RNA sequence: AUUAAUAAUUGAGGUCGAGAACCUCCCAAAUUAAU
Numbered sequence: 001a002u003u004a005a006u007a008a009u010u011g012a013g014g015u016c017g018a019g020a021a022c023c024u025c026c027c028a029a030a031u032u033a034a035u
Stems, first nucleotide, its partner, number of pairs: 001035006011025005